[Rfam]
RNA: Plant signal recognition particle RNA
RNA sequence: GCCGAGCGCACUAGCGAGUGCUUGUAACCUGAGCGGGGGCAAUAAGGUGGCGUGAACGUUGCCGUAGCGCUGUGGGCCUGGUCCAGUUGUGCACCUGCUGGCCCGCUGGGGCCUGUGCGAAAGCUAGGCGUCACGGGCUUAUAAUGUGGCAGGCAUUGCGUGAGGCUGGUUUAACAGAGCAGCGAAAACUGCCCGCUUCCAACGGUGGGAGGAUAACGGGCUGCUGCACAACUGGGCCGCUUGGCCCUCACAGCCUACUCCAACGAACCACCAUCUUU
Numbered sequence: 001g002c003c004g005a006g007c008g009c010a011c012u013a014g015c016g017a018g019u020g021c022u023u024g025u026a027a028c029c030u031g032a033g034c035g036g037g038g039g040c041a042a043u044a045a046g047g048u049g050g051c052g053u054g055a056a057c058g059u060u061g062c063c064g065u066a067g068c069g070c071u072g073u074g075g076g077c078c079u080g081g082u083c084c085a086g087u088u089g090u091g092c093a094c095c096u097g098c099u100g101g102c103c104c105g106c107u108g109g110g111g112c113c114u115g116u117g118c119g120a121a122a123g124c125u126a127g128g129c130g131u132c133a134c135g136g137g138c139u140u141a142u143a144a145u146g147u148g149g150c151a152g153g154c155a156u157u158g159c160g161u162g163a164g165g166c167u168g169g170u171u172u173a174a175c176a177g178a179g180c181a182g183c184g185a186a187a188a189c190u191g192c193c194c195g196c197u198u199c200c201a202a203c204g205g206u207g208g209g210a211g212g213a214u215a216a217c218g219g220g221c222u223g224c225u226g227c228a229c230a231a232c233u234g235g236g237c238c239g240c241u242u243g244g245c246c247c248u249c250a251c252a253g254c255c256u257a258c259u260c261c262a263a264c265g266a267a268c269c270a271c272c273a274u275c276u277u278u
Stems, first nucleotide, its partner, number of pairs: 001040003004023006011016001028037003044277007052269001054268001057265005064258004070253005075247002078244001080238008089229005099223007107212001112209004116204002119200001121198004126140004148193005157186001159184003166177003